[Rfam]
Nucleotides: 168
Stems, first nucleotide, its partner, number of pairs: 002015005029168001031166003036161001041155003045151002049146003064143003068139001073135003077131007084112004090105003
Number, partner (000 for none) and nucleotide at each position: 001000g002015c003014g004013c005012u006011g007000g008000u009000a010000a011006c012005g013004g014003c015002g016000a017000g018000g019000u020000c021000u022000g023000a024000a025000g026000g027000a028000a029168g030000c031166u032165g033164c034000a035000g036161g037000g038000g039000g040000a041155a042154c043153u044000c045151g046150g047000a048000a049146c050145a051144u052000a053000g054000c055000g056000a057000a058000a059000g060000c061000g062000a063000a064143c065142c066141g067000a068139u069000g070000u071000u072000g073135g074134c075133c076000g077131c078130u079129c080128a081127g082126g083125u084112g085111g086110g087109u088000a089000a090105c091104c092103u093000u094000g095000c096000a097000u098000g099000a100000a101000g102000u103092g104091g105090g106000a107000a108000a109087g110086c111085c112084c113000g114000a115000a116000a117000g118000c119000u120000g121000a122000u123000u124000a125083a126082c127081c128080u129079g130078a131077g132000a133075g134074g135073u136000u137000a138000g139068a140000a141066c142065g143064g144051a145050u146049g147000c148000g149000u150046u151045c152000a153043a154042g155041u156000u157000a158000a159000g160000g161036c162000a163000a164033g165032c166031a167000a168029c